[Rfam]
RNA sequence: GCCAGAGUGGUGAAAUUGGUAUACACGCGGCACUUAAACUGCCGUUUCCGCAAGGAAGUACGGGUUCAAGUCCCGUCUCUGGUA
Number, nucleotide and partner (000 for none) at each position: 001g083002c082003c081004a080005g079006a078007g077008u000009g000010g026011u025012g024013a000014a000015a000016u000017u000018g000019g000020u000021a000022u000023a000024c012025a011026c010027g000028c044029g043030g042031c041032a040033c000034u000035u000036a000037a000038a000039c000040u032041g031042c030043c029044g028045u000046u000047u000048c000049c000050g000051c000052a000053a000054g000055g000056a000057a000058g000059u000060a076061c075062g074063g073064g072065u000066u000067c000068a000069a000070g000071u000072c064073c063074c062075g061076u060077c007078u006079c005080u004081g003082g002083u001084a000